[Rfam]
RNA sequence: GGGUCGAUAGCUCAGUCGGUAGAGCUGCGGACUUUUAAUCCGUAGGUCCAGGGUUCGAGUCCCUGUCGACCCA
Numbered sequence: 001g002g003g004u005c006g007a008u009a010g011c012u013c014a015g016u017c018g019g020u021a022g023a024g025c026u027g028c029g030g031a032c033u034u035u036u037a038a039u040c041c042g043u044a045g046g047u048c049c050a051g052g053g054u055u056c057g058a059g060u061c062c063c064u065g066u067c068g069a070c071c072c073a
Stems, first nucleotide, its partner, number of pairs: 001072007010025004027043005049065005

Shown here is a 73-nucleotide RNA from Sorangium cellulosum, a member of the family "tRNA". The base pairs follow the family's consensus structure, which is taken from published work. Rfam classes the family as a transfer RNA.